Rfam assigns this 74-nucleotide RNA sequence from Sphingomonas sp. SKA58 to the family "Makes More Granules Regulator RNA (mmgR)". The organism belongs to Sphingomonas, within Bacteria. By type it is a small RNA. From the family's description: SuhB later renamed mmgR (makes more granules regulator) was a putative non-coding RNA found multiple times in the Agrobacterium tumefaciens genome and related alpha-proteobacteria. Other non-coding RNAs uncovered in the same analysis include: speF, ybhL, metA, and serC.Several studies inSinorhizobium meliloti showed that suhB element is indeed a non-coding RNA:firstly it was detected on Northern blot and called Sm8RNA, secondly in an RNAseq study referred to as SmelC689.The mutant phenotype's (strain lacking the small RNA) cytoplasm contains higher content of polyhydroxybutyrate (PBH)storage granules than wild type strain. Clan: suhB sRNA clan. The sequence is in the family's curated seed alignment.
RNA sequence: GGGCUGUGCCUUUCAGGCAUCCUCUCCUAAAAACUUAUCGGCUGAUCUUCGGAUCAGCCUUUUUUUUGUCAUCG
Number, nucleotide and partner (000 for none) at each position: 001g000002g000003g000004c000005u000006g000007u000008g018009c017010c016011u015012u000013u000014c000015a011016g010017g009018c008019a000020u000021c000022c000023u000024c000025u000026c000027c000028u000029a000030a000031a000032a000033a000034c000035u000036u000037a000038u000039c000040g059041g058042c057043u056044g055045a054046u053047c052048u000049u000050c000051g000052g047053a046054u045055c044056a043057g042058c041059c040060u000061u000062u000063u000064u000065u000066u000067u000068g000069u000070c000071a000072u000073c000074g000